[Rfam]
RNA sequence: AUAGCAGAAGUGGGGGCCAUAGUAGAAGCAUUCACAUUCCGACCCCCAUCAGGUAAUAACACCCGUGAAUUCUGCU
Numbered sequence: 001a002u003a004g005c006a007g008a009a010g011u012g013g014g015g016g017c018c019a020u021a022g023u024a025g026a027a028g029c030a031u032u033c034a035c036a037u038u039c040c041g042a043c044c045c046c047c048a049u050c051a052g053g054u055a056a057u058a059a060c061a062c063c064c065g066u067g068a069a070u071u072c073u074g075c076u
Stems, first nucleotide, its partner, number of pairs: 013046004018041001021076007028040001030038001050065001052063003
Mammalian CPEB3 ribozyme: a 76-nucleotide RNA sequence from Crocodylus porosus.
Rfam links the family to the GO term RNA nuclease activity.
A search with the family's covariance model found it, with a score of 51 bits.
The organism belongs to Crocodylus, within Eukaryota.